[Rfam]
RNA sequence: GUCACACAAAUGGGCUUCCUUUUCGUUCCCAGCUGAAUUUCUAAUCAUGCUGGCAAGACAAGGCAGUCUACUUGUGUGAC
Numbered sequence: 001g002u003c004a005c006a007c008a009a010a011u012g013g014g015c016u017u018c019c020u021u022u023u024c025g026u027u028c029c030c031a032g033c034u035g036a037a038u039u040u041c042u043a044a045u046c047a048u049g050c051u052g053g054c055a056a057g058a059c060a061a062g063g064c065a066g067u068c069u070a071c072u073u074g075u076g077u078g079a080c
Stems, first nucleotide, its partner, number of pairs: 002079008012069005018063004023058002026055001029053005034047003